A member of the RNA family "mir-71 microRNA precursor family" from Psylliodes chrysocephalus, 72 nucleotides long.
On this family, see Yu et al., PLoS One 2008: "The silkworm (Bombyx mori) microRNAs and their expressions in multiple developmental stages".
Rfam links the family to the GO terms miRNA-mediated post-transcriptional gene silencing and RISC complex.
The base pairs follow the family's consensus structure, which was predicted with RNAalifold.
NCBI's taxonomy places the organism under Eukaryota, Eumetazoa, Hexapoda, Chrysomeloidea, Psylliodes.
The family has 36 seed sequences and 372 matches in Rfam 15.1.

[Rfam]
RNA sequence: ACUUUAUGAAAGACAUGGGUAGUGAGAUGUUCACACUUUUUUUUGUCUCACUACCUUGUCUUUCAUGAAGAC
Numbered sequence: 001a002c003u004u005u006a007u008g009a010a011a012g013a014c015a016u017g018g019g020u021a022g023u024g025a026g027a028u029g030u031u032c033a034c035a036c037u038u039u040u041u042u043u044u045g046u047c048u049c050a051c052u053a054c055c056u057u058g059u060c061u062u063u064c065a066u067g068a069a070g071a072c
Stems, first nucleotide, its partner, number of pairs: 008064008017056003021052009